[Rfam]
RNA sequence: UUUAUUUUUUCGUGUCUAACGUUUGACCAUUCGUUUUAUUUAAAUUUUUUUACGAUUAAUUUUUUUACUAUUACUAGAUAAUAAAAUAUAAAUAGUAUUUUAUACGUGACUAAUUUUUUAAGUUUUUAUACAAAUUUUUUAAAUAAGACGAAUGAUCAAAUAUUAGACAUAGAAAAAUAAAAAAUGAGCUUAUU
Numbered sequence: 001u002u003u004a005u006u007u008u009u010u011c012g013u014g015u016c017u018a019a020c021g022u023u024u025g026a027c028c029a030u031u032c033g034u035u036u037u038a039u040u041u042a043a044a045u046u047u048u049u050u051u052a053c054g055a056u057u058a059a060u061u062u063u064u065u066u067a068c069u070a071u072u073a074c075u076a077g078a079u080a081a082u083a084a085a086a087u088a089u090a091a092a093u094a095g096u097a098u099u100u101u102a103u104a105c106g107u108g109a110c111u112a113a114u115u116u117u118u119u120a121a122g123u124u125u126u127u128a129u130a131c132a133a134a135u136u137u138u139u140u141a142a143a144u145a146a147g148a149c150g151a152a153u154g155a156u157c158a159a160a161u162a163u164u165a166g167a168c169a170u171a172g173a174a175a176a177a178u179a180a181a182a183a184a185u186g187a188g189c190u191u192a193u194u
Stems, first nucleotide, its partner, number of pairs: 015167005022160005028154012
RNA: MIR812 microRNA precursor family
Organism: Oryza brachyantha